[Rfam]
RNA sequence: GUGCUCACAAGAACGCUUAUCCUGCCAUGUGGCUGCGAUGGGUUCUGGGACAAGGUGAGCUAGAUCAUGAGUAUUGCUUUGGGAGUGUCUCAUUCCAGGCCACCUGGGACACUACAGUUUUCAAUACAACA
Numbered sequence: 001g002u003g004c005u006c007a008c009a010a011g012a013a014c015g016c017u018u019a020u021c022c023u024g025c026c027a028u029g030u031g032g033c034u035g036c037g038a039u040g041g042g043u044u045c046u047g048g049g050a051c052a053a054g055g056u057g058a059g060c061u062a063g064a065u066c067a068u069g070a071g072u073a074u075u076g077c078u079u080u081g082g083g084a085g086u087g088u089c090u091c092a093u094u095c096c097a098g099g100c101c102a103c104c105u106g107g108g109a110c111a112c113u114a115c116a117g118u119u120u121u122c123a124a125u126a127c128a129a130c131a
Base pairs, nucleotide, nucleotide: 003060004059005058006057007056008055012044013043014042018040019039020038021037025032026031071127073125074124075123076122079117080116081115084113085112086111087110088109089108090107091106093102
Shown here is a 131-nucleotide sequence from Anser cygnoides, a member of the family "Small Cajal body specific RNA 23". The source organism's lineage runs through Eukaryota, Eumetazoa, Sauria, Archosauria and Anser. The match comes from Rfam's covariance-model search (62 bits). Pairs were carried over by alignment from the consensus structure, which was predicted with RNAfold. About the family: scaRNAs are a specific class of small nuclear RNAs which localise to the Cajal bodies and guide the modification of RNA polymerase II transcribed spliceosomal RNAs U1, U2, U4, U5 and U12. ACA11 belongs to the H/ACA box class of guide RNAs as it has the predicted hairpin-hinge-hairpin-tail structure,the conserved H/ACA-box motifs and is found associated with GAR1. H/ACA snRNAs are predicted to guide the modification of uridines to pseudouridines in substrate RNAs however, no target RNA has been identified for scaRNA ACA11. Rfam links the family to the GO terms Cajal body, nucleolus and RNA processing. Rfam classes the family as a small Cajal body RNA. A reference for the family is Darzacq et al. (2002), "Cajal body-specific small nuclear RNAs: a novel class of 2'-O-methylation and pseudouridylation guide RNAs", EMBO J.